[Rfam]
RNA sequence: ACAAGCAGUUGAAGCUUGUUCAAUCCGCCCCCCCAAACCUUUGGAGAGGAAAAAGAUUGACGAGUGACAGCGUACCUUUUGCAUAAUGG
Numbered sequence: 001a002c003a004a005g006c007a008g009u010u011g012a013a014g015c016u017u018g019u020u021c022a023a024u025c026c027g028c029c030c031c032c033c034c035a036a037a038c039c040u041u042u043g044g045a046g047a048g049g050a051a052a053a054a055g056a057u058u059g060a061c062g063a064g065u066g067a068c069a070g071c072g073u074a075c076c077u078u079u080u081g082c083a084u085a086a087u088g089g
Stems, first nucleotide, its partner, number of pairs: 008071004014065004020060006033044004075088001077086001